[Rfam]
This 73-nucleotide RNA sequence from Thalassobacter sp. 16PALIMAR09 belongs to the Rfam family "tRNA".
The base pairs follow the family's consensus structure, which is taken from published work.
By type it is a transfer RNA.
Its family is annotated with triplet codon-amino acid adaptor activity in the Gene Ontology.

RNA sequence: GGGCCUGUAGCUCAGCGGUUAGAGCAGGGCGCUCAUAACGCCUUGGUCGCAGGUUCGAAUCCUGCCGGGCCUA
Numbered sequence: 001g002g003g004c005c006u007g008u009a010g011c012u013c014a015g016c017g018g019u020u021a022g023a024g025c026a027g028g029g030c031g032c033u034c035a036u037a038a039c040g041c042c043u044u045g046g047u048c049g050c051a052g053g054u055u056c057g058a059a060u061c062c063u064g065c066c067g068g069g070c071c072u073a
Base pairs, nucleotide, nucleotide: 001072002071003070004069005068006067007066010025011024012023013022027043028042029041030040031039049065050064051063052062053061